This 103-nucleotide RNA from Anisodus acutangulus belongs to the Rfam family "Small nucleolar RNA snoR100". The match comes from Rfam's covariance-model search (79 bits). By type it is an H/ACA-box small nucleolar RNA. The base pairs follow the family's consensus structure, which was predicted with WAR. For this family Rfam cites "Experimental RNomics: identification of 140 candidates for small non-messenger RNAs in the plant Arabidopsis thaliana" (Marker et al., Curr Biol, 2002).
[Rfam]
RNA sequence: GUAUGAAGAAAGCAUGGUUAUGUGCACAGAAAUUGAAAUAGAGUCGACAUGUCUGCUCCCUCUGAUUUCCCAUGAUUAGGGGGCCUGGUUUAGACUCACAUUU
Numbered sequence: 001g002u003a004u005g006a007a008g009a010a011a012g013c014a015u016g017g018u019u020a021u022g023u024g025c026a027c028a029g030a031a032a033u034u035g036a037a038a039u040a041g042a043g044u045c046g047a048c049a050u051g052u053c054u055g056c057u058c059c060c061u062c063u064g065a066u067u068u069c070c071c072a073u074g075a076u077u078a079g080g081g082g083g084c085c086u087g088g089u090u091u092a093g094a095c096u097c098a099c100a101u102u103u
Stems, first nucleotide, its partner, number of pairs: 012025004041086001043084003051076003055070001